[Rfam]
RNA sequence: CGAUUAUGGCCAAAAGACUUGGAGACUGACACAUGUUUUUUGUACAGUUAGUU
Numbered sequence: 001c002g003a004u005u006a007u008g009g010c011c012a013a014a015a016g017a018c019u020u021g022g023a024g025a026c027u028g029a030c031a032c033a034u035g036u037u038u039u040u041u042g043u044a045c046a047g048u049u050a051g052u053u
Stems, first nucleotide, its partner, number of pairs: 021040006027033002
The family of this 53-nucleotide RNA sequence from Drosophila gunungcola is "FIE3 (ftz instability element 3') element".
Gene Ontology term of the family: mRNA destabilization.
The match comes from Rfam's covariance-model search (47 bits).
Taxonomically the source falls in elegans subgroup (in: flies) (Eukaryota, Arthropoda, Altocrustacea, Pterygota).